Shown here is a 107-nucleotide sequence, a member of the family "6S-Flavo RNA".
It is one of the family's seed sequences.
RNA sequence: ACUCAACGAGUAUUAAAUUAAGAAAGGUGAGUUUAAAUGCUAAAGCAAGCUAUCUUGAAUAGAUCCUUGAAUAUUUAAUUAGCCUUAAUCCUGUUUUUUAGGAGUUU
Numbered sequence: 001a002c003u004c005a006a007c008g009a010g011u012a013u014u015a016a017a018u019u020a021a022g023a024a025a026g027g028u029g030a031g032u033u034u035a036a037a038u039g040c041u042a043a044a045g046c047a048a049g050c051u052a053u054c055u056u057g058a059a060u061a062g063a064u065c066c067u068u069g070a071a072u073a074u075u076u077a078a079u080u081a082g083c084c085u086u087a088a089u090c091c092u093g094u095u096u097u098u099u100a101g102g103a104g105u106u107u
Base pairs, nucleotide, nucleotide: 024086025085026084027083028082034077035076036075037074038073043068044067045066050062051061052060053059

The family's RNA type in Rfam is small RNA. The base pairs follow the family's consensus structure, which is taken from published work.